RNA: MIR2118 microRNA precursor family
RNA sequence: GUGAGAUAGAAAGAGGAAUAAAUAGUUUAAGAGCGGUGAGAAUGGGAACACACGGGAAACCUUGAGCUAUCUGUCUGCAACUCUAGAACCGGAGGUGGAUAUCUUUCUUAUUGUUUCCCAUGUCUCCCGCUCCUAUUGUUCUUAGGUUCUCCUUCCCCUUCCCGUUGGAA
Numbered sequence: 001g002u003g004a005g006a007u008a009g010a011a012a013g014a015g016g017a018a019u020a021a022a023u024a025g026u027u028u029a030a031g032a033g034c035g036g037u038g039a040g041a042a043u044g045g046g047a048a049c050a051c052a053c054g055g056g057a058a059a060c061c062u063u064g065a066g067c068u069a070u071c072u073g074u075c076u077g078c079a080a081c082u083c084u085a086g087a088a089c090c091g092g093a094g095g096u097g098g099a100u101a102u103c104u105u106u107c108u109u110a111u112u113g114u115u116u117c118c119c120a121u122g123u124c125u126c127c128c129g130c131u132c133c134u135a136u137u138g139u140u141c142u143u144a145g146g147u148u149c150u151c152c153u154u155c156c157c158c159u160u161c162c163c164g165u166u167g168g169a170a
Base pairs, nucleotide, nucleotide: 009161010160011159013157015155016154017153022150026146027145028144029143030142031141032140033139034138035137037135038134040132041131043129044128045127046126047125049122050121055118056117057116058115059114060113